The record is an 88-nucleotide sequence from Aedes aegypti, which matches "mir-927 microRNA precursor family" in Rfam.
Rfam 15.1 lists 174 matches to the family in 143 species.
Gene Ontology terms of the family: RISC complex and miRNA-mediated post-transcriptional gene silencing.
NCBI's taxonomy places the organism under Eukaryota, Altocrustacea, Allotriocarida, Hexapoda, Stegomyia.
The family's consensus secondary structure was predicted with RNAalifold.
The match comes from Rfam's covariance-model search (80 bits).
[Rfam]
RNA sequence: CUGUUGAUGGUUUGCUUUAGAAUUCCUACGCUUUACCGUGAUUUGUUGAAAGUUUGGCAAAGCGUUUGGGUUCUGAAACGAAACAUUA
Numbered sequence: 001c002u003g004u005u006g007a008u009g010g011u012u013u014g015c016u017u018u019a020g021a022a023u024u025c026c027u028a029c030g031c032u033u034u035a036c037c038g039u040g041a042u043u044u045g046u047u048g049a050a051a052g053u054u055u056g057g058c059a060a061a062g063c064g065u066u067u068g069g070g071u072u073c074u075g076a077a078a079c080g081a082a083a084c085a086u087u088a
Stems, first nucleotide, its partner, number of pairs: 011081002014079001016077006023070003028065007036057002